RNA: Flavo-1 RNA
RNA sequence: UGCUAACCCUGACAGUAAUGAAAAGCAUUUAUUUUAAAAAAAAACUAAAUUUCUUGCCUUACAAAAGCGACCAACGGAAGCUCUUUGGAAGGCAUUAGAAAUUGUUUUUUUUAAAUAAAUCUUGUAAUGUAUGGCAGGAAUGGUU
Numbered sequence: 001u002g003c004u005a006a007c008c009c010u011g012a013c014a015g016u017a018a019u020g021a022a023a024a025g026c027a028u029u030u031a032u033u034u035u036a037a038a039a040a041a042a043a044a045c046u047a048a049a050u051u052u053c054u055u056g057c058c059u060u061a062c063a064a065a066a067g068c069g070a071c072c073a074a075c076g077g078a079a080g081c082u083c084u085u086u087g088g089a090a091g092g093c094a095u096u097a098g099a100a101a102u103u104g105u106u107u108u109u110u111u112u113a114a115a116u117a118a119a120u121c122u123u124g125u126a127a128u129g130u131a132u133g134g135c136a137g138g139a140a141u142g143g144u145u
Stems, first nucleotide, its partner, number of pairs: 009137003013133002018128002023123003029118006036111007